RNA sequence: ACUCCCAUUUGACUACCACAGUUUCUCCCAAUAAUAGAUUUUGGUGGCUAUGCUUGUGGGAUAAAUUAAAAUUGCCAUGAUCUGAAGAGGGAGGACCCUUUUGUGUCCUCCUCCUAUAUGAAAUGGCUGAACAGAAAAUU
Numbered sequence: 001a002c003u004c005c006c007a008u009u010u011g012a013c014u015a016c017c018a019c020a021g022u023u024u025c026u027c028c029c030a031a032u033a034a035u036a037g038a039u040u041u042u043g044g045u046g047g048c049u050a051u052g053c054u055u056g057u058g059g060g061a062u063a064a065a066u067u068a069a070a071a072u073u074g075c076c077a078u079g080a081u082c083u084g085a086a087g088a089g090g091g092a093g094g095a096c097c098c099u100u101u102u103g104u105g106u107c108c109u110c111c112u113c114c115u116a117u118a119u120g121a122a123a124u125g126g127c128u129g130a131a132c133a134g135a136a137a138a139u140u
Base pairs, nucleotide, nucleotide: 004060005059006058007057016047017046018045019044074127075126076125077124092115093114094113095112

The family of this 140-nucleotide RNA from Neomonachus schauinslandi is "Small nucleolar RNA SNORA29". Pairs were carried over by alignment from the consensus structure, which was predicted with PFOLD. A search with the family's covariance model found it, with a score of 160 bits. From the family's description: ACA29 is a member of the H/ACA class of snoRNA that guide the sites of modification of uridines to pseudouridines. Its Rfam clan is "SNORA20 clan". Taxonomically the source falls in Neomonachus (Eukaryota, Pinnipedia, Phocidae, Monachini).